[Rfam]
Rfam assigns this 76-nucleotide RNA sequence to the family "L13-Bacteroidia ribosomal protein leader". By type it is a cis-regulatory leader. Rfam's curators put it in the seed alignment.
RNA sequence: GGGGAGAGUCUUAGAAUCCCCGCGAGAUAUUGUGUGAAUAGCGGCGUCUUUGGCCGGGCGAAGCGGUUCGUGAAUC
Numbered sequence: 001g002g003g004g005a006g007a008g009u010c011u012u013a014g015a016a017u018c019c020c021c022g023c024g025a026g027a028u029a030u031u032g033u034g035u036g037a038a039u040a041g042c043g044g045c046g047u048c049u050u051u052g053g054c055c056g057g058g059c060g061a062a063g064c065g066g067u068u069c070g071u072g073a074a075u076c
Stems, first nucleotide, its partner, number of pairs: 001021005035070005041064002045060005
Dot-bracket structure: (((((...........))))).............(((((.((..(((((......)))))..)).)))))......